[Rfam]
RNA sequence: UUGAGGUGAAGUUCUGUCAUACACUCUGACUGUAAGUAACUGCAAGUCAGUGCAUCACAGAACUUUGUCUCGAA
Number, nucleotide and partner (000 for none) at each position: 001u000002u000003g000004a070005g069006g068007u067008g066009a065010a064011g063012u062013u061014c060015u059016g058017u000018c000019a000020u000021a000022c052023a051024c050025u049026c000027u000028g048029a047030c046031u045032g000033u000034a000035a000036g000037u000038a000039a000040c000041u000042g000043c000044a000045a031046g030047u029048c028049a025050g024051u023052g022053c000054a000055u000056c000057a000058c016059a015060g014061a013062a012063c011064u010065u009066u008067g007068u006069c005070u004071c000072g000073a000074a000
Annotation:
Shown here is a 74-nucleotide RNA from Microcaecilia unicolor, a member of the family "mir-148/mir-152 microRNA precursor family". The source organism's lineage runs through Eukaryota, Bilateria, Euteleostomi, Dipnotetrapodomorpha and Microcaecilia. Gene Ontology terms of the family: RISC complex and miRNA-mediated post-transcriptional gene silencing.